RNA sequence: AACAGGAGUAGAAGCGGUCUGUAAUGGAAAUAGCAUUACUGGGCAUUGCUCCAAUA
Numbered sequence: 001a002a003c004a005g006g007a008g009u010a011g012a013a014g015c016g017g018u019c020u021g022u023a024a025u026g027g028a029a030a031u032a033g034c035a036u037u038a039c040u041g042g043g044c045a046u047u048g049c050u051c052c053a054a055u056a
Stems, first nucleotide, its partner, number of pairs: 005052006015041001018043002021039006
RNA: Xanthine riboswitch aptamer (NMT1 RNA)
Organism: Vibrio rumoiensis